[Rfam]
RNA sequence: GGCCUACCUCUUUGGGGUGAUUGAUCGUGGAGCCCUGCGAUUGAUCGCCCCAGAGAGGGAGGCC
Numbered sequence: 001g002g003c004c005u006a007c008c009u010c011u012u013u014g015g016g017g018u019g020a021u022u023g024a025u026c027g028u029g030g031a032g033c034c035c036u037g038c039g040a041u042u043g044a045u046c047g048c049c050c051c052a053g054a055g056a057g058g059g060a061g062g063c064c
Stems, first nucleotide, its partner, number of pairs: 001064005007058024
mir-9242 microRNA precursor family: a 64-nucleotide sequence from Myotis davidii. The source organism's lineage runs through Eukaryota, Opisthokonta, Gnathostomata, Eutheria and Myotis. Pairs were carried over by alignment from the consensus structure, which was predicted with RNAalifold. It scores 62 bits against the family's covariance model.